[Rfam]
Rfam assigns this 256-nucleotide sequence from Microthlaspi erraticum to the family "RNase MRP". A search with the family's covariance model found it, with a score of 90 bits. Rfam 15.1 lists 3,510 matches to the family in 2,315 species. NCBI's taxonomy places the organism under Eukaryota, Spermatophyta, eudicotyledons, Brassicales, Microthlaspi. About the family: RNase MRP is an enzymatically active ribonucleoprotein with two distinct roles in eukaryotes. In mitochondria it plays a direct role in the initiation of mitochondrial DNA replication.

RNA sequence: CAGUCAUUGGACGAAGUGAAUGGGUGACAUGGGCUUGUCUAAGUUCCGACCCAGGAAAGUCCCCGGGCCACUUGUCCGCAGAGAUGCGGCCUCGGUAACGAGAGAAUCAUGCGGGUGGGAAGACCCAAUUAGCUGAGACGCGUGUGUGGAGCUUUCGUGGUCUCUCUGCCGAUGAUAUCAUGGCCGUUCGUUUCGACAGUUAUUCACUUUGGUCCUUCACCGGAUUAACUGAACGGGGCUUACGUUUCCAAUGACU
Numbered sequence: 001c002a003g004u005c006a007u008u009g010g011a012c013g014a015a016g017u018g019a020a021u022g023g024g025u026g027a028c029a030u031g032g033g034c035u036u037g038u039c040u041a042a043g044u045u046c047c048g049a050c051c052c053a054g055g056a057a058a059g060u061c062c063c064c065g066g067g068c069c070a071c072u073u074g075u076c077c078g079c080a081g082a083g084a085u086g087c088g089g090c091c092u093c094g095g096u097a098a099c100g101a102g103a104g105a106a107u108c109a110u111g112c113g114g115g116u117g118g119g120a121a122g123a124c125c126c127a128a129u130u131a132g133c134u135g136a137g138a139c140g141c142g143u144g145u146g147u148g149g150a151g152c153u154u155u156c157g158u159g160g161u162c163u164c165u166c167u168g169c170c171g172a173u174g175a176u177a178u179c180a181u182g183g184c185c186g187u188u189c190g191u192u193u194c195g196a197c198a199g200u201u202a203u204u205c206a207c208u209u210u211g212g213u214c215c216u217u218c219a220c221c222g223g224a225u226u227a228a229c230u231g232a233a234c235g236g237g238g239c240u241u242a243c244g245u246u247u248c249c250a251a252u253g254a255c256u
Stems, first nucleotide, its partner, number of pairs: 002256010014209006022052004031046006057241003061238004077088004091102004106176003113169001115167001117165002122162004131153003140147002211226005